[Rfam]
RNA sequence: GAAUGAAAUGAGGAUCAGAAGUUUUCCCUAUUGGUUUGAUUGCCGAGAUGAUGGCCGACCUUAUGUAUUAGCUCUAUCUGAUCAUUC
Dot-bracket structure: .((((................................(..((((........))).).).......................)))).
Numbered sequence: 001g002a003a004u005g006a007a008a009u010g011a012g013g014a015u016c017a018g019a020a021g022u023u024u025u026c027c028c029u030a031u032u033g034g035u036u037u038g039a040u041u042g043c044c045g046a047g048a049u050g051a052u053g054g055c056c057g058a059c060c061u062u063a064u065g066u067a068u069u070a071g072c073u074c075u076a077u078c079u080g081a082u083c084a085u086u087c
Stems, first nucleotide, its partner, number of pairs: 002086004038059001041057001042055003

The record is an 87-nucleotide RNA sequence from Hibiscus syriacus, which matches "Small nucleolar RNA Z102/R77" in Rfam. A reference for the family is Chen et al. (2003), "The high diversity of snoRNAs in plants: identification and comparative study of 120 snoRNA genes from Oryza sativa", Nucleic Acids Res. The family has 9 seed sequences and 1,346 matches in Rfam 15.1. Its Rfam clan is "SNORD44 clan". By type it is a C/D-box small nucleolar RNA.